[Rfam]
RNA sequence: GGCAUAUAUGAUGAGCAUUAUGGGACUUAAUACUGAAAACUGAUGUCUUACAUUUGCUGAUAUGC
Numbered sequence: 001g002g003c004a005u006a007u008a009u010g011a012u013g014a015g016c017a018u019u020a021u022g023g024g025a026c027u028u029a030a031u032a033c034u035g036a037a038a039a040c041u042g043a044u045g046u047c048u049u050a051c052a053u054u055u056g057c058u059g060a061u062a063u064g065c
Stems, first nucleotide, its partner, number of pairs: 002065005
Shown here is a 65-nucleotide sequence from Xenopus laevis, a member of the family "Small nucleolar RNA SNORD82". The literature on the family includes a 2002 paper in Mol Cell Biol by Galardi et al., "Purified box C/D snoRNPs are able to reproduce site-specific 2'-O-methylation of target RNA in vitro". Rfam classes the family as a C/D-box small nucleolar RNA. About the family: snoRNA U82 or Z25 is found in both humans and mice. Rfam 15.1 lists 649 matches to the family in 590 species. The source organism's lineage runs through Eukaryota, Opisthokonta, Sarcopterygii, Pipidae and Xenopus.